[Rfam]
RNA sequence: CGGGGGCACUGCAGCCUCCCGUCAAAUGGAGCUCUCUCCAUGCAAGCGCUGC
Number, nucleotide and partner (000 for none) at each position: 001c021002g020003g019004g018005g017006g000007c000008a000009c000010u000011g052012c051013a050014g049015c048016c000017u005018c004019c003020c002021g001022u000023c000024a000025a000026a041027u040028g039029g038030a037031g036032c000033u000034c000035u000036c031037u030038c029039c028040a027041u026042g000043c000044a000045a000046g000047c000048g015049c014050u013051g012052c011
Shown here is a 52-nucleotide sequence, a member of the family "chrB-b RNA". The sequence is in the family's curated seed alignment. The family's RNA type in Rfam is cis-regulatory element.